[Rfam]
RNA sequence: GCCGAGCUUCAUAACGCGAGCUUGUAACCCGAGUGGGGGCGUUAAGGUGUUUGGACAUUGUUCAGGCCCAACUGGCUGGAUUCAGGCUUGCAGAUUACUGGCCUGCCCGUUCCAAGCAAGGAACUGGGCCGUGUGGUUCAAGCGAAAGCAUGAAUUGCCUGGCUCCUAGAGUGGAGGAGAACGCGUCAGGCUGGUUUCACAGAGCAGCGAUAACCCCCCAUUCCUUGCAGUGGGAGGAUAACGGGCCGGAGCAACCUGAACCAUCAAAAGUCAGAUGGGCUUGUCCAAAUUGGACAUCCACUUUU
Numbered sequence: 001g002c003c004g005a006g007c008u009u010c011a012u013a014a015c016g017c018g019a020g021c022u023u024g025u026a027a028c029c030c031g032a033g034u035g036g037g038g039g040c041g042u043u044a045a046g047g048u049g050u051u052u053g054g055a056c057a058u059u060g061u062u063c064a065g066g067c068c069c070a071a072c073u074g075g076c077u078g079g080a081u082u083c084a085g086g087c088u089u090g091c092a093g094a095u096u097a098c099u100g101g102c103c104u105g106c107c108c109g110u111u112c113c114a115a116g117c118a119a120g121g122a123a124c125u126g127g128g129c130c131g132u133g134u135g136g137u138u139c140a141a142g143c144g145a146a147a148g149c150a151u152g153a154a155u156u157g158c159c160u161g162g163c164u165c166c167u168a169g170a171g172u173g174g175a176g177g178a179g180a181a182c183g184c185g186u187c188a189g190g191c192u193g194g195u196u197u198c199a200c201a202g203a204g205c206a207g208c209g210a211u212a213a214c215c216c217c218c219c220a221u222u223c224c225u226u227g228c229a230g231u232g233g234g235a236g237g238a239u240a241a242c243g244g245g246c247c248g249g250a251g252c253a254a255c256c257u258g259a260a261c262c263a264u265c266a267a268a269a270g271u272c273a274g275a276u277g278g279g280c281u282u283g284u285c286c287a288a289a290u291u292g293g294a295c296a297u298c299c300a301c302u303u304u305u
Base pairs, nucleotide, nucleotide: 001040002039003038004023005022006021007020008019009018028037029036030035044304045303046302047301048300049299052296053295056292057291058288059287060286062283064281065280068278069277070276072274073273074272075271076270077269079262081260082259083258084257085256086255088254089253090252098249099248100247101246102245103244104243105242107237108236110235111234112233113232114231116228117227118226119225120224121223122222123221126165127164128163129162130161131160133158134157135156136155137154138153139152140151142149143148166171173218174217176215177214184209185208186207191202192201193200
A member of the RNA family "Plant signal recognition particle RNA" from Olea europaea, 305 nucleotides long.
On this family, see Batey et al., J Mol Biol 2001: "Structural and energetic analysis of RNA recognition by a universally conserved protein from the signal recognition particle".
The family's RNA type in Rfam is non-coding RNA gene.
It scores 233 bits against the family's covariance model.
Lineage of the source: Eukaryota > Tracheophyta > Gunneridae > Oleeae > Olea europaea.